[Rfam]
RNA sequence: UGAGUAAACUAGAUGAUCGCAGGCAUAAGCCGCAAGGCUGUGUUUGAGGAAAGUCCGGGCUCCAUAGGGCAGGGUGCUGGCUAACGGCCAGUGAGGGUGACCUCAAGGAUAGUGCCACAGAAAUAAACCGCCUUCUUUUGAAGGUAAGGGUGGAACGGUGCGGUAAGAGCGCACCAGCAGCUAGGUGACUAGCUGGCUAGGUAAACCCCACUUGGAGCAAGACCUAAUAGGGGAACGCAUGGAGUAGCCCGCUCUGUUCCCGGGUAGGUCGCACGAGGUGCUUGGUAACUUGCAUCCCAGAUAGAUGAUCAUCCACGACAGAACCCGGCUUACGGUUUGCUCACUUA
Numbered sequence: 001u002g003a004g005u006a007a008a009c010u011a012g013a014u015g016a017u018c019g020c021a022g023g024c025a026u027a028a029g030c031c032g033c034a035a036g037g038c039u040g041u042g043u044u045u046g047a048g049g050a051a052a053g054u055c056c057g058g059g060c061u062c063c064a065u066a067g068g069g070c071a072g073g074g075u076g077c078u079g080g081c082u083a084a085c086g087g088c089c090a091g092u093g094a095g096g097g098u099g100a101c102c103u104c105a106a107g108g109a110u111a112g113u114g115c116c117a118c119a120g121a122a123a124u125a126a127a128c129c130g131c132c133u134u135c136u137u138u139u140g141a142a143g144g145u146a147a148g149g150g151u152g153g154a155a156c157g158g159u160g161c162g163g164u165a166a167g168a169g170c171g172c173a174c175c176a177g178c179a180g181c182u183a184g185g186u187g188a189c190u191a192g193c194u195g196g197c198u199a200g201g202u203a204a205a206c207c208c209c210a211c212u213u214g215g216a217g218c219a220a221g222a223c224c225u226a227a228u229a230g231g232g233g234a235a236c237g238c239a240u241g242g243a244g245u246a247g248c249c250c251g252c253u254c255u256g257u258u259c260c261c262g263g264g265u266a267g268g269u270c271g272c273a274c275g276a277g278g279u280g281c282u283u284g285g286u287a288a289c290u291u292g293c294a295u296c297c298c299a300g301a302u303a304g305a306u307g308a309u310c311a312u313c314c315a316c317g318a319c320a321g322a323a324c325c326c327g328g329c330u331u332a333c334g335g336u337u338u339g340c341u342c343a344c345u346u347a
Base pairs, nucleotide, nucleotide: 001343002342003341004340005339006338007337008336009335010334012313013312014311015310016309017308018307020046021045022044023043024042025041026040027039051331052330053329055328056327057326058325059324060217061216062215063214067250068249069248070247072213073212074211075210076209077091078090079089080088081087092106093104094103095102096101107208108207112206113205114202115201116200128149129148130145131144132143133142134141135140157175158174159173160172161171162170177197178195179194180193181192182191183190184189221270222269223268224267231261232260233259234258235257236256241255242254243253244252245251277296278295279294280293281292284289
RNA: Bacterial RNase P class A
Organism: Desulfonispora thiosulfatigenes